[Rfam]
RNA sequence: GUACGAACACCGCUUGACAGGAGCGGGGGAACCACCUCUGGAACCGAUUCCGGUUCCUUGGGGCGAACGGUCCGGCCCUGUCGGACCAGGGGCACUCCAGCCCUAGCCCGACAGCUCACCCCGCAGGCACUGGAGGAACUACAU
Numbered sequence: 001g002u003a004c005g006a007a008c009a010c011c012g013c014u015u016g017a018c019a020g021g022a023g024c025g026g027g028g029g030a031a032c033c034a035c036c037u038c039u040g041g042a043a044c045c046g047a048u049u050c051c052g053g054u055u056c057c058u059u060g061g062g063g064c065g066a067a068c069g070g071u072c073c074g075g076c077c078c079u080g081u082c083g084g085a086c087c088a089g090g091g092g093c094a095c096u097c098c099a100g101c102c103c104u105a106g107c108c109c110g111a112c113a114g115c116u117c118a119c120c121c122c123g124c125a126g127g128c129a130c131u132g133g134a135g136g137a138a139c140u141a142c143a144u
Base pairs, nucleotide, nucleotide: 002022004020023124024123025122026121027120028119033060034059061109062108063107069087070086071085072084090103091102092101093100
Shown here is a 144-nucleotide RNA from Serinicoccus hydrothermalis, a member of the family "c-di-AMP riboswitch aptamer (ydaO/yuaA leader)".
The pairing is the family consensus, mapped onto this sequence.
Lineage of the source: Bacteria > Actinomycetota > Actinomycetes > Micrococcales > Serinicoccus.
This family represents a conserved RNA structure found upstream of the ydaO and yuaA genes in Bacillus subtilis and related genes in other bacteria. The ydaO/yuaA element is thought to act as a genetic 'off' switch for the ydaO and yuaA genes in its native state. It is believed that the element may be triggered during osmotic shock leading to activation of ydaO, a predicted amino acid transporter gene, and members of the yuaA-yubG operon which code for KtrA and KtrB K+ transporters.
It scores 54 bits against the family's covariance model.